ZMP/ZTP riboswitch aptamer (pfl RNA motif): an 88-nucleotide sequence from Streptomyces spongiae.
RNA sequence: UCGGCGGGCCGUGACUGGCGCUGAGGUGGAGUACCACCGGGGAGCGGCUCGACGAACGGGUCUCCUGCCGCGCGCCUGGGCGAUGUCA
Numbered sequence: 001u002c003g004g005c006g007g008g009c010c011g012u013g014a015c016u017g018g019c020g021c022u023g024a025g026g027u028g029g030a031g032u033a034c035c036a037c038c039g040g041g042g043a044g045c046g047g048c049u050c051g052a053c054g055a056a057c058g059g060g061u062c063u064c065c066u067g068c069c070g071c072g073c074g075c076c077u078g079g080g081c082g083a084u085g086u087c088a
Base pairs, nucleotide, nucleotide: 003053005051006050007049008048009047010046011045012044015041016040017076018075019074020073021072026037027036028035029034066082067081068080069079
The organism belongs to Streptomyces, within Bacteria.